[Rfam]
The family of this 354-nucleotide RNA from Oceanispirochaeta crateris is "Bacterial RNase P class A". It is annotated as a ribozyme. The organism belongs to Oceanispirochaeta, within Bacteria.
RNA sequence: UUAACAGGUCUGACUGCCGCCGGAAGGCUUGUUCUUCCGGAGGAAAGUCCGGGCUCCAUAGAGAAUGAUGCCGGGUAAUUCCCGGGCGUUCCCUUAUUGGGAACGACAGAAAGUGUCACAGAAAACAAACCGCCUUCUGCAAGUCAGAAGGUAAGGGUGAAAAGGCGGGGUAAGAGCCCACCGCUCCAUCGGCAACGAGGGAGGCACGAUAAACCUCAUCAGGAGCAAAAUCAAGCAGCAGACCGGGUUUCUCGCCUAAAGUCUGCGGGUAGAUUGCUAAAGUUCAGGGGCAACCCUGGAAUAAGAUAGAUGGCAGUCCUAAGACAGAACCCGGCUUACAGACCUGUUUUUAUU
Numbered sequence: 001u002u003a004a005c006a007g008g009u010c011u012g013a014c015u016g017c018c019g020c021c022g023g024a025a026g027g028c029u030u031g032u033u034c035u036u037c038c039g040g041a042g043g044a045a046a047g048u049c050c051g052g053g054c055u056c057c058a059u060a061g062a063g064a065a066u067g068a069u070g071c072c073g074g075g076u077a078a079u080u081c082c083c084g085g086g087c088g089u090u091c092c093c094u095u096a097u098u099g100g101g102a103a104c105g106a107c108a109g110a111a112a113g114u115g116u117c118a119c120a121g122a123a124a125a126c127a128a129a130c131c132g133c134c135u136u137c138u139g140c141a142a143g144u145c146a147g148a149a150g151g152u153a154a155g156g157g158u159g160a161a162a163a164g165g166c167g168g169g170g171u172a173a174g175a176g177c178c179c180a181c182c183g184c185u186c187c188a189u190c191g192g193c194a195a196c197g198a199g200g201g202a203g204g205c206a207c208g209a210u211a212a213a214c215c216u217c218a219u220c221a222g223g224a225g226c227a228a229a230a231u232c233a234a235g236c237a238g239c240a241g242a243c244c245g246g247g248u249u250u251c252u253c254g255c256c257u258a259a260a261g262u263c264u265g266c267g268g269g270u271a272g273a274u275u276g277c278u279a280a281a282g283u284u285c286a287g288g289g290g291c292a293a294c295c296c297u298g299g300a301a302u303a304a305g306a307u308a309g310a311u312g313g314c315a316g317u318c319c320u321a322a323g324a325c326a327g328a329a330c331c332c333g334g335c336u337u338a339c340a341g342a343c344c345u346g347u348u349u350u351u352a353u354u
Stems, first nucleotide, its partner, number of pairs: 003348008012318007020040008045337003049334005054225004061253004066221005071085005086107001087105007108216002113214002115210003130156002132152008164182002167179003183205001184203004189198003229275004238266006245257004283300007